[Rfam]
RNA sequence: GUAUGUUCUCAGGGCGGGGUGUAAUUCCCCACCGGCGGUAAUCAUUGACAUGAAAGCCCGCGAGCGCCUUCCAAUAGGAAGGGUCAGCAGAUCCGGUUAAAUUCCGGAGCCGACGGUUAAAGUCCGGAUGAAAGAGAGCGGGA
Numbered sequence: 001g002u003a004u005g006u007u008c009u010c011a012g013g014g015c016g017g018g019g020u021g022u023a024a025u026u027c028c029c030c031a032c033c034g035g036c037g038g039u040a041a042u043c044a045u046u047g048a049c050a051u052g053a054a055a056g057c058c059c060g061c062g063a064g065c066g067c068c069u070u071c072c073a074a075u076a077g078g079a080a081g082g083g084u085c086a087g088c089a090g091a092u093c094c095g096g097u098u099a100a101a102u103u104c105c106g107g108a109g110c111c112g113a114c115g116g117u118u119a120a121a122g123u124c125c126g127g128a129u130g131a132a133a134g135a136g137a138g139c140g141g142g143a
Base pairs, nucleotide, nucleotide: 004140005139006138007137008136009135010134017029018028019027031123032122033112034111035061036060037059038058056110057109064088065087092108093107094106095105096104114126115125116124
The record is a 143-nucleotide RNA sequence from Marinosulfonomonas sp. PRT-SC04, which matches "FMN riboswitch aptamer (RFN element)" in Rfam. Pairs were carried over by alignment from the consensus structure, which is taken from published work. A search with the family's covariance model found it, with a score of 123 bits.